[Rfam]
RNA: U1 spliceosomal RNA
RNA sequence: UAACUGAUACCUGGCAGGGGAGAUACCAUGAUCACAAAGGUGGUUUUGUCAGGGUGAGGCCCAUUCAUUGCACUCUGGGUGUGUUGGCUCUUCCUAGUUCCCCAAAUACAGCAAACUCGACUAUGUAAUUUGUGGUAGUGGGAGACUGCGUUUGUGCUUUCCCCUG
Number, nucleotide and partner (000 for none) at each position: 001u000002a000003a000004c000005u000006g000007a000008u000009a000010c000011c000012u000013g000014g124015c000016a122017g121018g050019g049020g000021a047022g046023a045024u000025a044026c043027c042028a041029u040030g000031a000032u000033c000034a000035c000036a000037a000038a000039g000040g029041u028042g027043g026044u025045u023046u022047u021048g000049u019050c018051a092052g091053g090054g089055u000056g088057a000058g085059g084060c083061c000062c081063a080064u079065u078066c077067a000068u000069u000070g000071c000072a000073c000074u000075c000076u000077g066078g065079g064080u063081g062082u000083g060084u059085u058086g000087g000088c056089u054090c053091u052092u051093c000094c119095u000096a117097g000098u114099u113100c000101c111102c000103c000104a000105a000106a000107u000108a000109c000110a000111g101112c000113a099114a098115a000116c000117u096118c000119g094120a000121c017122u016123a000124u014125g000126u000127a000128a000129u000130u000131u000132g000133u000134g000135g000136u000137a000138g000139u000140g165141g164142g163143a000144g161145a160146c000147u000148g157149c156150g155151u000152u000153u000154g000155u150156g149157c148158u000159u000160u145161c144162c000163c142164c141165u140166g000